This 102-nucleotide RNA sequence from Photobacterium ganghwense belongs to the Rfam family "Qrr RNA". From the family's description: This family represents a set of small RNAs (the Qrr RNAs) that are thought to be involved in the regulation of quorum sensing in Vibrio species. It is believed that these RNAs, guided by a protein, Hfq, can mediate the destabilisation of the quorum-sensing master regulators LuxR/HapR mRNAs. The organism belongs to Photobacterium, within Bacteria.
[Rfam]
RNA sequence: UGACUCUUCCUGAGAGUCAACCUAGCCAACUGACGUUGUUUGUGGAAUAUUUUCACUUAAACAAUGACGCCAACCGACCUAUUUUCGGUUGGCUUUUUUUUA
Numbered sequence: 001u002g003a004c005u006c007u008u009c010c011u012g013a014g015a016g017u018c019a020a021c022c023u024a025g026c027c028a029a030c031u032g033a034c035g036u037u038g039u040u041u042g043u044g045g046a047a048u049a050u051u052u053u054c055a056c057u058u059a060a061a062c063a064a065u066g067a068c069g070c071c072a073a074c075c076g077a078c079c080u081a082u083u084u085u086c087g088g089u090u091g092g093c094u095u096u097u098u099u100u101u102a
Stems, first nucleotide, its partner, number of pairs: 001019006036067004042056006070092008

Overview
Rfam classes the family as a small RNA. The match comes from Rfam's covariance-model search (87 bits).